[Rfam]
RNA: c-di-AMP riboswitch aptamer (ydaO/yuaA leader)
Organism: Winogradskya consettensis
RNA sequence: GGUCGGCAACGCCGAAUUCCUGCCGCCGACCGGGCCGGGACCUUUGACCAAAGGCAGGAAGUGGGGGACCCAAGUUCCUCGGCGUGCUGCAGCGCGCCUCGGGGUGAAGCCGGACCCGCCAUAACCGAGCGGGACGGCCGGGCUACCUCGCCCGAAUCCGACAGCUGACCUCACAGGCGUGGAGGUUCAUCUUU
Number, nucleotide and partner (000 for none) at each position: 001g000002g000003u000004c000005g000006g000007c000008a000009a000010c179011g178012c177013c176014g000015a000016a000017u060018u059019c058020c057021u056022g055023c054024c053025g000026c000027c000028g000029a000030c000031c000032g000033g000034g000035c000036c000037g000038g000039g000040a000041c000042c000043u000044u000045u000046g000047a000048c000049c000050a000051a000052a000053g024054g023055c022056a021057g020058g019059a018060a017061g174062u173063g172064g171065g170066g169067g000068a000069c000070c000071c101072a000073a000074g000075u000076u000077c000078c000079u000080c000081g000082g000083c000084g000085u000086g000087c000088u000089g000090c000091a000092g000093c000094g000095c000096g000097c000098c000099u000100c000101g071102g159103g158104g157105u000106g000107a000108a000109g000110c137111c136112g135113g000114a000115c000116c000117c000118g000119c000120c000121a000122u000123a000124a000125c000126c000127g000128a000129g000130c000131g000132g000133g000134a000135c112136g111137g110138c000139c000140g153141g152142g151143c150144u000145a000146c000147c000148u000149c000150g143151c142152c141153c140154g000155a000156a000157u104158c103159c102160g000161a000162c000163a000164g000165c000166u000167g000168a000169c066170c065171u064172c063173a062174c061175a000176g013177g012178c011179g010180u000181g000182g000183a000184g000185g000186u000187u000188c000189a000190u000191c000192u000193u000194u000